[Rfam]
RNA sequence: UUUGGGAAAUGAUGAUAAGCUACAUAAUACUUUCAGAGGCAGUUGCUAUGCUGAACUUGUUAUUUGCACGUCAGUCUGAUCCCUUG
Numbered sequence: 001u002u003u004g005g006g007a008a009a010u011g012a013u014g015a016u017a018a019g020c021u022a023c024a025u026a027a028u029a030c031u032u033u034c035a036g037a038g039g040c041a042g043u044u045g046c047u048a049u050g051c052u053g054a055a056c057u058u059g060u061u062a063u064u065u066g067c068a069c070g071u072c073a074g075u076c077u078g079a080u081c082c083c084u085u086g
Base pairs, nucleotide, nucleotide: 001086004083005082006081007080
The record is an 86-nucleotide RNA from Cucurbita maxima, which matches "Small nucleolar RNA Z122" in Rfam.